[Rfam]
RNA sequence: UUCUUAUCAAGAGUAGGUGGAGGGACUAGCCCGAUGAUACCCGGCAACCGGCGAGAUUUAACGUACGGUGCUAAUUCUUGCAGAAUCGCACAGCUUGUAGCUUGCUGCGAAUUCUGAGAGAUGAGAG
Numbered sequence: 001u002u003c004u005u006a007u008c009a010a011g012a013g014u015a016g017g018u019g020g021a022g023g024g025a026c027u028a029g030c031c032c033g034a035u036g037a038u039a040c041c042c043g044g045c046a047a048c049c050g051g052c053g054a055g056a057u058u059u060a061a062c063g064u065a066c067g068g069u070g071c072u073a074a075u076u077c078u079u080g081c082a083g084a085a086u087c088g089c090a091c092a093g094c095u096u097g098u099a100g101c102u103u104g105c106u107g108c109g110a111a112u113u114c115u116g117a118g119a120g121a122u123g124a125g126a127g
Stems, first nucleotide, its partner, number of pairs: 001127008013042001016041003022032003026080001028078002043072004048068002051064003076119001081116006
The family of this 127-nucleotide sequence from Fontibacillus panacisegetis is "SAM riboswitch aptamer (S box leader)". NCBI's taxonomy places the organism under Bacteria, Bacilli, Caryophanales, Paenibacillaceae, Fontibacillus. It scores 75 bits against the family's covariance model.